This 47-nucleotide sequence from Hirundo rustica belongs to the Rfam family "Histone 3' UTR stem-loop". Its family is annotated with mRNA 3'-end processing by stem-loop binding and cleavage in the Gene Ontology.
RNA sequence: CCAAAGGCUCUUUUAAGAGCCACUACAUUGCACGUAAAAAGGGCUGU
Numbered sequence: 001c002c003a004a005a006g007g008c009u010c011u012u013u014u015a016a017g018a019g020c021c022a023c024u025a026c027a028u029u030g031c032a033c034g035u036a037a038a039a040a041g042g043g044c045u046g047u
Stems, first nucleotide, its partner, number of pairs: 006021006

The literature on the family includes a 1995 paper in Nucleic Acids Res by Williams and Marzluff, "The sequence of the stem and flanking sequences at the 3' end of histone mRNA are critical determinants for the binding of the stem-loop binding protein".
It scores 40 bits against the family's covariance model.
Rfam classes the family as a cis-regulatory element.